U1 spliceosomal RNA: a 161-nucleotide RNA from Salvia splendens. The family's consensus secondary structure is taken from published work. The family has 100 seed sequences and 40,184 matches in Rfam 15.1. The literature on the family includes a 1997 paper in Nucleic Acids Res by Zwieb, "The uRNA database".
[Rfam]
RNA sequence: AUACUUACCUGGACGGGGUCGAUGGGCGAUCCAUAAGGCCCAUGGCCUAGAUUGGCGACUUCCAUUGCACUUAGGAGGGGCGCCUGUCUAAGGUCGGCCCAAGUGGUCGAGCCUACGUCAUAAUUUGUGUCAGAGGGGGCCUGCGUUCGCGCGGCCCCUGC
Numbered sequence: 001a002u003a004c005u006u007a008c009c010u011g012g013a014c015g016g017g018g019u020c021g022a023u024g025g026g027c028g029a030u031c032c033a034u035a036a037g038g039c040c041c042a043u044g045g046c047c048u049a050g051a052u053u054g055g056c057g058a059c060u061u062c063c064a065u066u067g068c069a070c071u072u073a074g075g076a077g078g079g080g081c082g083c084c085u086g087u088c089u090a091a092g093g094u095c096g097g098c099c100c101a102a103g104u105g106g107u108c109g110a111g112c113c114u115a116c117g118u119c120a121u122a123a124u125u126u127g128u129g130u131c132a133g134a135g136g137g138g139g140c141c142u143g144c145g146u147u148c149g150c151g152c153g154g155c156c157c158c159u160g161c
Stems, first nucleotide, its partner, number of pairs: 012119004016048006023042005049089003053086001055083003059079003062075002091114003094110003098106002135159004142153004